[Rfam]
About this RNA
The record is a 240-nucleotide sequence from Archangium sp. Cb G35, which matches "Group II catalytic intron D1-D4-6" in Rfam. On this family, see Lehmann and Schmidt, Crit Rev Biochem Mol Biol 2003: "Group II introns: structure and catalytic versatility of large natural ribozymes". It scores 122 bits against the family's covariance model. The organism belongs to Archangium, within Bacteria.
RNA sequence: GGAAUCCCGUCCGGCCAGGUUGGGUCGCUUGGCUGAGAGCGAGUCUUGCGUGGCCGUAGGAAACACACGGGCGACCGUGGCUGCGAAGCGUAGACAGCGGGUGUGUGGGCCGUGUGAUUGAGCCUCGAAAUGCCUGUGUGGUGGAGGCCGACGCGGUGUUCAACGCGGAAGGCAUCACCUCCGUGCACGGCGGAUUCACCGUCGACCUCGGCACGGAGGCUCCACCGGGGUCAUAGAGCU
Dot-bracket structure: ...........(((((((((......)))))))))...((..(((((((((((((((.(...............).)))))))))...)).)))).)).....................(.((((((.............(((((((((..((((........))))...)))....(((((((((........................))))))))))))))))))))))........